[Rfam]
RNA sequence: CGGGGGAGGCCGGAUCCUGUGCUGUGCCCCCGGUGCCCUGUACUCCCAUCCUGCGCUGUUGCAAUUGCGCUCCCGGCCAAGCAGCCCCCU
Numbered sequence: 001c002g003g004g005g006g007a008g009g010c011c012g013g014a015u016c017c018u019g020u021g022c023u024g025u026g027c028c029c030c031c032g033g034u035g036c037c038c039u040g041u042a043c044u045c046c047c048a049u050c051c052u053g054c055g056c057u058g059u060u061g062c063a064a065u066u067g068c069g070c071u072c073c074c075g076g077c078c079a080a081g082c083a084g085c086c087c088c089c090u
Stems, first nucleotide, its partner, number of pairs: 002089005009082002012078002016076002019073001021071001023069004030061001031058006040051001044048001
RNA: mir-8799 microRNA precursor family
Organism: Nyctereutes procyonoides